A member of the RNA family "c-di-AMP riboswitch aptamer (ydaO/yuaA leader)" from Nocardioides sp. Leaf285, 155 nucleotides long. Lineage of the source: Bacteria > Bacillati > Actinomycetota > Nocardioidaceae > Nocardioides. It scores 58 bits against the family's covariance model.
RNA sequence: CUGAGUCCGACGCCGCCUGGCGGCGCCGGAGCCGGGGAACCAACUCUUCUGGGGUGAAUCUCCCGCGAGGCGCACCCACCGGUGCGAGGAGCGGGCGUAGGGCGAGUCGUGCCCGAAUCCGUCAGCUCACCCGGUAGGCGUACGACAGCAAGGGA
Numbered sequence: 001c002u003g004a005g006u007c008c009g010a011c012g013c014c015g016c017c018u019g020g021c022g023g024c025g026c027c028g029g030a031g032c033c034g035g036g037g038a039a040c041c042a043a044c045u046c047u048u049c050u051g052g053g054g055u056g057a058a059u060c061u062c063c064c065g066c067g068a069g070g071c072g073c074a075c076c077c078a079c080c081g082g083u084g085c086g087a088g089g090a091g092c093g094g095g096c097g098u099a100g101g102g103c104g105a106g107u108c109g110u111g112c113c114c115g116a117a118u119c120c121g122u123c124a125g126c127u128c129a130c131c132c133g134g135u136a137g138g139c140g141u142a143c144g145a146c147a148g149c150a151a152g153g154g155a
Base pairs, nucleotide, nucleotide: 001138002137006030007029008028031135032134033133034132035131036130041051042050052120053119054118060097062095063094064093065092066091100114101113102112103111